[Rfam]
RNA sequence: UGGCGCUUGAGGCUUUUUGCCUCAUGAUGUUCGGGUGGUUUGUUAUCGUGUUGUGAGGCAAAAAGCAGAAAGCCCCGAAGUUAAUUCUCAUUAACCACGAGGCUUGAUCUGUAUGCCUAGACAACAUCAGAUUAGCCGCUUACCUGCCGAAAGGCAAGGAGAAGAAGGCCAUG
Numbered sequence: 001u002g003g004c005g006c007u008u009g010a011g012g013c014u015u016u017u018u019g020c021c022u023c024a025u026g027a028u029g030u031u032c033g034g035g036u037g038g039u040u041u042g043u044u045a046u047c048g049u050g051u052u053g054u055g056a057g058g059c060a061a062a063a064a065g066c067a068g069a070a071a072g073c074c075c076c077g078a079a080g081u082u083a084a085u086u087c088u089c090a091u092u093a094a095c096c097a098c099g100a101g102g103c104u105u106g107a108u109c110u111g112u113a114u115g116c117c118u119a120g121a122c123a124a125c126a127u128c129a130g131a132u133u134a135g136c137c138g139c140u141u142a143c144c145u146g147c148c149g150a151a152a153g154g155c156a157a158g159g160a161g162a163a164g165a166a167g168g169c170c171a172u173g
Stems, first nucleotide, its partner, number of pairs: 002075002005073004012066012026052005077098001080095006099139001101137003106133005113127003143168003147164001
sok antitoxin (CssrC): a 173-nucleotide sequence from Enterobacter sp. 638. Also identified in Shigella as CssrC. The family's RNA type in Rfam is antitoxin RNA. The literature on the family includes a 2007 paper in Mol Microbiol by Kawano et al., "An antisense RNA controls synthesis of an SOS-induced toxin evolved from an antitoxin".